This 85-nucleotide sequence from Salmo salar belongs to the Rfam family "mir-130 microRNA precursor family".
The literature on the family includes a 2003 paper in Dev Cell by Houbaviy et al., "Embryonic stem cell-specific MicroRNAs".
The match comes from Rfam's covariance-model search (44 bits).
The organism belongs to Salmo, within Eukaryota.

RNA sequence: CAUUGGCACCCUAUUCCCUACAUAGUGCACUACUUUGGGCCCUGGUCAAAAGCAGUGCACUAUAUAAGGAAUAGGGUGCCAUUUG
Numbered sequence: 001c002a003u004u005g006g007c008a009c010c011c012u013a014u015u016c017c018c019u020a021c022a023u024a025g026u027g028c029a030c031u032a033c034u035u036u037g038g039g040c041c042c043u044g045g046u047c048a049a050a051a052g053c054a055g056u057g058c059a060c061u062a063u064a065u066a067a068g069g070a071a072u073a074g075g076g077u078g079c080c081a082u083u084u085g
Stems, first nucleotide, its partner, number of pairs: 001085002005080003009076003013072005019066002023062009